Rfam assigns this 164-nucleotide RNA from Streptococcus pneumoniae to the family "Group II catalytic intron D1-D4-3".
RNA sequence: GGAAAUAAGAAUCGUCAGAGGAAGAGAUAGCGAAAUCGUGGCUCUACGAACAGGAACGUGAUAGCAAGGCGUAUAUAGCGGAUAAGGAGGCUUCAAACUCUAAAGUCCAAAAAGGUAGUCGUAACCUAUAUGUGUAAAUCACGAGAGUAAUUGAAUUCGGACUA
Numbered sequence: 001g002g003a004a005a006u007a008a009g010a011a012u013c014g015u016c017a018g019a020g021g022a023a024g025a026g027a028u029a030g031c032g033a034a035a036u037c038g039u040g041g042c043u044c045u046a047c048g049a050a051c052a053g054g055a056a057c058g059u060g061a062u063a064g065c066a067a068g069g070c071g072u073a074u075a076u077a078g079c080g081g082a083u084a085a086g087g088a089g090g091c092u093u094c095a096a097a098c099u100c101u102a103a104a105g106u107c108c109a110a111a112a113a114g115g116u117a118g119u120c121g122u123a124a125c126c127u128a129u130a131u132g133u134g135u136a137a138a139u140c141a142c143g144a145g146a147g148u149a150a151u152u153g154a155a156u157u158c159g160g161a162c163u164a
Base pairs, nucleotide, nucleotide: 001013002012006011030162031160039153040152041148042147043146044145045144057143058142059141060140061139062138069135070134071133073131074130075129076128077127078126080108081107082106083105086101087100088099089098
The source organism's lineage runs through Bacteria, Bacillati, Bacilli, Lactobacillales and Streptococcus pneumoniae.